[Rfam]
RNA: Plastid-psbA-2 3UTR RNA
Organism: Illicium henryi
RNA sequence: AUUGAAGGAACAAUACCCCAUUUCUUGUUUUAUAAAGAAGUGGGGUAUUGUUCCUUCAAUUA
Numbered sequence: 001a002u003u004g005a006a007g008g009a010a011c012a013a014u015a016c017c018c019c020a021u022u023u024c025u026u027g028u029u030u031u032a033u034a035a036a037g038a039a040g041u042g043g044g045g046u047a048u049u050g051u052u053c054c055u056u057c058a059a060u061u062a
Stems, first nucleotide, its partner, number of pairs: 002059018023038004